Nucleotides: 088
Stems, first nucleotide, its partner, number of pairs: 003086004
Number, partner (000 for none) and nucleotide at each position: 001000g002000u003086c004085u005084c006083u007000a008000a009000u010000g011000a012000u013000g014000a015000u016000c017000a018000a019000a020000a021000c022000a023000a024000a025000c026000u027000u028000u029000c030000g031000u032000u033000c034000u035000g036000c037000u038000g039000a040000g041000g042000u043000u044000u045000u046000a047000u048000u049000a050000a051000u052000c053000u054000g055000u056000g057000c058000g059000g060000a061000g062000a063000a064000a065000a066000c067000u068000g069000g070000a071000g072000a073000c074000c075000u076000g077000a078000a079000c080000u081000g082000a083006a084005g085004a086003g087000a088000c